[Rfam]
RNA sequence: GGGUCGCGCUUUCACUCGGAUCGUCCGGCACGUUCCUGCCGGUGAAAGGAAGCACC
Numbered sequence: 001g002g003g004u005c006g007c008g009c010u011u012u013c014a015c016u017c018g019g020a021u022c023g024u025c026c027g028g029c030a031c032g033u034u035c036c037u038g039c040c041g042g043u044g045a046a047a048g049g050a051a052g053c054a055c056c
Stems, first nucleotide, its partner, number of pairs: 009048006025042006
msiK RNA: a 56-nucleotide RNA from Plantactinospora sp. KBS50. By type it is a cis-regulatory element.